[Rfam]
RNA sequence: UUCUGGCGGGUCUUGGCACUGGAAGAAUUCACAGAUGUGCUAUAUAUAAUCGUGGAUCUUGCAAUGCCAUCACUUGCUUGAU
Numbered sequence: 001u002u003c004u005g006g007c008g009g010g011u012c013u014u015g016g017c018a019c020u021g022g023a024a025g026a027a028u029u030c031a032c033a034g035a036u037g038u039g040c041u042a043u044a045u046a047u048a049a050u051c052g053u054g055g056a057u058c059u060u061g062c063a064a065u066g067c068c069a070u071c072a073c074u075u076g077c078u079u080g081a082u
Base pairs, nucleotide, nucleotide: 003080005078006077007076008075009074010073014069015068016067017066018065020063021062023059025058026057029055030054031053032052034050
Dot-bracket structure: ..(.((((((...(((((.((.(.((..((((.(...............).)))).)))..)).)))))...)))))).)..
Background
Rfam assigns this 82-nucleotide RNA sequence to the family "mir-263 microRNA precursor family". For this family Rfam cites "Direct sequencing and expression analysis of a large number of miRNAs in Aedes aegypti and a multi-species survey of novel mosquito miRNAs" (Li et al., BMC Genomics, 2009). The match comes from Rfam's covariance-model search (63 bits). Its Rfam clan is "mir-182 clan".